[Rfam]
A member of the RNA family "SAM riboswitch aptamer (S box leader)" from Aneurinibacillus danicus, 101 nucleotides long.
The organism belongs to Aneurinibacillus, within Bacteria.
The match comes from Rfam's covariance-model search (90 bits).
The family's consensus secondary structure is taken from published work.

RNA sequence: CUCUUAUCGAGAGAGGCGGAGGGACUGGCCCGAUGAAACCUCGGCAACCGAUAUAAAGUCGGUGCCAAUUCCAGCAGACACACAGUUCUGAAAGAUAAGAG
Numbered sequence: 001c002u003c004u005u006a007u008c009g010a011g012a013g014a015g016g017c018g019g020a021g022g023g024a025c026u027g028g029c030c031c032g033a034u035g036a037a038a039c040c041u042c043g044g045c046a047a048c049c050g051a052u053a054u055a056a057a058g059u060c061g062g063u064g065c066c067a068a069u070u071c072c073a074g075c076a077g078a079c080a081c082a083c084a085g086u087u088c089u090g091a092a093a094g095a096u097a098a099g100a101g
Stems, first nucleotide, its partner, number of pairs: 001101008013042004021031003025074004043066004048062004070093001075090004